L31-Actinobacteria ribosomal protein leader: a 47-nucleotide sequence from Streptomyces clavuligerus.
The literature on the family includes a 2020 paper in BMC Microbiol by Eckert and Weinberg, "Discovery of 20 novel ribosomal leader candidates in bacteria and archaea".
The source organism's lineage runs through Bacteria, Bacillati, Actinomycetota, Kitasatosporales and Streptomyces.

RNA sequence: UCGGCCCCGGUUCACGCGCGGACAAUCCGCCCGGGCGACCCGGAGCC
Numbered sequence: 001u002c003g004g005c006c007c008c009g010g011u012u013c014a015c016g017c018g019c020g021g022a023c024a025a026u027c028c029g030c031c032c033g034g035g036c037g038a039c040c041c042g043g044a045g046c047c
Base pairs, nucleotide, nucleotide: 003047004046005045007043008042009041010040015037016036017035019033020032021031023029